[Rfam]
RNA sequence: CGGGUGGAGCCCUAAGUGCCGAGCGGGGGGACUCAGUUCGGCCGCCGCGGCCGGCGCGGUGCGUUCGUCGCGCGUCCAGCCGUCCUCGUGGCGGAGGGCGCGCGGCGGGCGUCGCCGCGUCCGCGUCGCGGUCCGAGCGCACUUCCCCCCUAGUAGGGCGUCGCGACCCGCUGGGUGUCGGCCGACGGCCCGGGUGCGUGUCCGGUGCGAGCCGCUUGCGGCGCGCGCCGGCGCCCCGGUGUCCCGGUCGACCGCCCGGCGGUGGUGCACGAUCGAGCUGGCCCGUGGGACGCUACGCGUCGCACGCCAACGCCCCGGGCGAGCGUCUCGCCGGUGUGUGCGCUCGGGCUUGCCCGACGCCGCCCGGCGCGCGCUGUCGGCCCGGGAUGCGCUCUGGCGGGGUCACCGUCUCUCGUCUGCGACGUUAGCUAGCGGGCGGCCCACCCGGCCCGUCUUGAAACACGG
Numbered sequence: 001c002g003g004g005u006g007g008a009g010c011c012c013u014a015a016g017u018g019c020c021g022a023g024c025g026g027g028g029g030g031a032c033u034c035a036g037u038u039c040g041g042c043c044g045c046c047g048c049g050g051c052c053g054g055c056g057c058g059g060u061g062c063g064u065u066c067g068u069c070g071c072g073c074g075u076c077c078a079g080c081c082g083u084c085c086u087c088g089u090g091g092c093g094g095a096g097g098g099c100g101c102g103c104g105g106c107g108g109g110c111g112u113c114g115c116c117g118c119g120u121c122c123g124c125g126u127c128g129c130g131g132u133c134c135g136a137g138c139g140c141a142c143u144u145c146c147c148c149c150c151u152a153g154u155a156g157g158g159c160g161u162c163g164c165g166a167c168c169c170g171c172u173g174g175g176u177g178u179c180g181g182c183c184g185a186c187g188g189c190c191c192g193g194g195u196g197c198g199u200g201u202c203c204g205g206u207g208c209g210a211g212c213c214g215c216u217u218g219c220g221g222c223g224c225g226c227g228c229c230g231g232c233g234c235c236c237c238g239g240u241g242u243c244c245c246g247g248u249c250g251a252c253c254g255c256c257c258g259g260c261g262g263u264g265g266u267g268c269a270c271g272a273u274c275g276a277g278c279u280g281g282c283c284c285g286u287g288g289g290a291c292g293c294u295a296c297g298c299g300u301c302g303c304a305c306g307c308c309a310a311c312g313c314c315c316c317g318g319g320c321g322a323g324c325g326u327c328u329c330g331c332c333g334g335u336g337u338g339u340g341c342g343c344u345c346g347g348g349c350u351u352g353c354c355c356g357a358c359g360c361c362g363c364c365c366g367g368c369g370c371g372c373g374c375u376g377u378c379g380g381c382c383c384g385g386g387a388u389g390c391g392c393u394c395u396g397g398c399g400g401g402g403u404c405a406c407c408g409u410c411u412c413u414c415g416u417c418u419g420c421g422a423c424g425u426u427a428g429c430u431a432g433c434g435g436g437c438g439g440c441c442c443a444c445c446c447g448g449c450c451c452g453u454c455u456u457g458a459a460a461c462a463c464g465g
Stems, first nucleotide, its partner, number of pairs: 001447007009437004450465004
The family of this 465-nucleotide part of an RNA from Cloeon dipterum is "Eukaryotic large subunit ribosomal RNA". Rfam links the family to the GO terms structural constituent of ribosome and ribosome. Pairs were carried over by alignment from the consensus structure, which is taken from published work. A search with the family's covariance model found it, with a score of 2876 bits. Taxonomically the source falls in Cloeon (Eukaryota, Protostomia, Panarthropoda, Pisciforma).